Shown here is a 73-nucleotide RNA from Methanothermus fervidus, a member of the family "tRNA". The base pairs follow the family's consensus structure, which is taken from published work. It is annotated as a transfer RNA.
RNA sequence: GCCUCGGUAGCUCAGCUGGUAGAGCGCGAGACUUGUAAUCUCGUGGUCGCGGGUUCAAAUCCCGCCCGAGGCU
Dot-bracket structure: (((((((..((((........)))).(((((.......))))).....(((((.......)))))))))))).